[Rfam]
Nucleotides: 129
Base pairs, nucleotide, nucleotide: 001055002054003053004052005051008048010045013040014039015038017036018035019034020033025031067124068123069122071120072119074117075116081108082107083106084105085104086103087102088101089100090099
Number, partner (000 for none) and nucleotide at each position: 001055a002054g003053c004052a005051c006000g007000u008048g009000u010045u011000c012000a013040g014039u015038u016000c017036u018035u019034g020033u021000c022000u023000g024000u025031u026000g027000c028000u029000g030000u031025a032000g033020a034019c035018a036017a037000a038015a039014a040013c041000c042000u043000g044000g045010a046000a047000c048008c049000u050000a051005g052004u053003g054002c055001u056000u057000a058000g059000a060000a061000a062000a063000a064000a065000a066000c067124c068123u069122u070000c071120u072119u073000u074117u075116g076000c077000a078000a079000c080000c081108c082107a083106c084105a085104g086103c087102u088101g089100a090099u091000g092000a093000a094000c095000a096000u097000a098000u099090a100089u101088c102087a103086g104085u105084u106083g107082u108081g109000u110000u111000a112000c113000a114000a115000c116075u117074a118000c119072g120071a121000a122069g123068g124067g125000a126000c127000a128000g129000u
Overview
The record is a 129-nucleotide RNA from Tricholaema leucomelas, which matches "Small nucleolar RNA SNORA40" in Rfam. Rfam links the family to the GO terms RNA processing and nucleolus. From the family's description: The snoRNA ACA 40 belongs to the H/ACA family of snoRNAs and guides the pseudouridylation of 28S rRNA subunit at position U4565. It is annotated as an H/ACA-box small nucleolar RNA. Rfam 15.1 lists 2,550 matches to the family in 517 species.